Rfam assigns this 114-nucleotide RNA from Fictibacillus enclensis to the family "epsC RNA".
The family's consensus secondary structure is taken from published work.
Lineage of the source: Bacteria > Bacillati > Bacillota > Caryophanales > Fictibacillus.

RNA sequence: AGGUGAUGCCUCCUUACCUCUAUCAAAGGAGGCACUCGGUUAUGCUGUGGGUGUCUUACAGCACCUUAGACGCGAGUCGUCGAUAGCAUGAUGUGAGGACGGGUUAAAUGCCCU
Numbered sequence: 001a002g003g004u005g006a007u008g009c010c011u012c013c014u015u016a017c018c019u020c021u022a023u024c025a026a027a028g029g030a031g032g033c034a035c036u037c038g039g040u041u042a043u044g045c046u047g048u049g050g051g052u053g054u055c056u057u058a059c060a061g062c063a064c065c066u067u068a069g070a071c072g073c074g075a076g077u078c079g080u081c082g083a084u085a086g087c088a089u090g091a092u093g094u095g096a097g098g099a100c101g102g103g104u105u106a107a108a109u110g111c112c113c114u
Stems, first nucleotide, its partner, number of pairs: 001019004007034007035097004039092008049066006069081004101113004